This 79-nucleotide RNA sequence from Mesocricetus auratus belongs to the Rfam family "Small nucleolar RNA SNORD115". Rfam links the family to the GO terms RNA processing and nucleolus. By type it is a C/D-box small nucleolar RNA. The literature on the family includes a 2000 paper in Proc Natl Acad Sci U S A by Cavaille et al., "Identification of brain-specific and imprinted small nucleolar RNA genes exhibiting an unusual genomic organization".

[Rfam]
RNA sequence: AGGAAUAUGGUGAUAAAUGAAUGUCUCUAAAAGAGUUGAUGACACAAAAAUCAUACUCAAUAACAUAACAAUUAAUCCC
Numbered sequence: 001a002g003g004a005a006u007a008u009g010g011u012g013a014u015a016a017a018u019g020a021a022u023g024u025c026u027c028u029a030a031a032a033g034a035g036u037u038g039a040u041g042a043c044a045c046a047a048a049a050a051u052c053a054u055a056c057u058c059a060a061u062a063a064c065a066u067a068a069c070a071a072u073u074a075a076u077c078c079c
Base pairs, nucleotide, nucleotide: 002078003077004076005073008070009069